[Rfam]
RNA sequence: CCAAAUGUUUUCUAGGGUUCCGCAGCUUACAGCCGUAUAGCUGGUCUGGUCCGAGGGAAAACUCACAGCGCGCGCUGUGCCACGGAAGGAUAAAAACCUGGGAGAA
Numbered sequence: 001c002c003a004a005a006u007g008u009u010u011u012c013u014a015g016g017g018u019u020c021c022g023c024a025g026c027u028u029a030c031a032g033c034c035g036u037a038u039a040g041c042u043g044g045u046c047u048g049g050u051c052c053g054a055g056g057g058a059a060a061a062c063u064c065a066c067a068g069c070g071c072g073c074g075c076u077g078u079g080c081c082a083c084g085g086a087a088g089g090a091u092a093a094a095a096a097c098c099u100g101g102g103a104g105a106a
Base pairs, nucleotide, nucleotide: 007062008061009060010059011058012057015052016051020049021048022046023043024042025041026040027039064079065078066077067076068075069074081101083104087099088098089097
Overview: This 106-nucleotide RNA sequence from Paenibacillus piri belongs to the Rfam family "Guanidine-I riboswitch aptamer". Lineage of the source: Bacteria > Bacillati > Bacilli > Paenibacillaceae > Paenibacillus. The family has 100 seed sequences and 1,509 matches in Rfam 15.1.